[Rfam]
RNA sequence: GUUGUGGUGCACGGGAGUCCCAGCGAGCGGGGACUGAGAGUGGGCGCGCACGCCCUUACCGUCGAACCUGAUCCGGGUCAUGCCGGCGAAGGGAGCAGACGAAUGCAUUCG
Numbered sequence: 001g002u003u004g005u006g007g008u009g010c011a012c013g014g015g016a017g018u019c020c021c022a023g024c025g026a027g028c029g030g031g032g033a034c035u036g037a038g039a040g041u042g043g044g045c046g047c048g049c050a051c052g053c054c055c056u057u058a059c060c061g062u063c064g065a066a067c068c069u070g071a072u073c074c075g076g077g078u079c080a081u082g083c084c085g086g087c088g089a090a091g092g093g094a095g096c097a098g099a100c101g102a103a104u105g106c107a108u109u110c111g
Stems, first nucleotide, its partner, number of pairs: 008097003011062004016056001017034005042055004067092003073086004
RNA: TPP riboswitch aptamer (THI element)
Organism: Mycobacterium conspicuum